[Rfam]
RNA sequence: UUCCUAUGAUGAUGUUUAAAAAGACAAGCAUAUGUCUGAUUUAUUAUGAUGAAUAAUUUUAUUUUCUGAGGAA
Dot-bracket structure: ((((.................................................................))))
The family of this 73-nucleotide sequence from Tetranychus urticae is "Small nucleolar RNA SNORD27".
A search with the family's covariance model found it, with a score of 61 bits.
It is annotated as a C/D-box small nucleolar RNA.
For this family Rfam cites "A small nucleolar RNA requirement for site-specific ribose methylation of rRNA in Xenopus" (Tycowski et al., Proc Natl Acad Sci U S A, 1996).